Rfam assigns this 61-nucleotide sequence from Pristionchus pacificus to the family "mir-8364 microRNA precursor family". Rfam links the family to the GO terms miRNA-mediated post-transcriptional gene silencing and RISC complex. It scores 76 bits against the family's covariance model.
RNA sequence: UCUUCAUUUCACACACUCUCUCGCCGGUUAGAGAGGCGAGAGAGUGUGAGGAAUGAAGAAA
Numbered sequence: 001u002c003u004u005c006a007u008u009u010c011a012c013a014c015a016c017u018c019u020c021u022c023g024c025c026g027g028u029u030a031g032a033g034a035g036g037c038g039a040g041a042g043a044g045u046g047u048g049a050g051g052a053a054u055g056a057a058g059a060a061a
Base pairs, nucleotide, nucleotide: 001059002058003057004056005055006054007053010050012048013047014046015045016044017043019041020040021039022038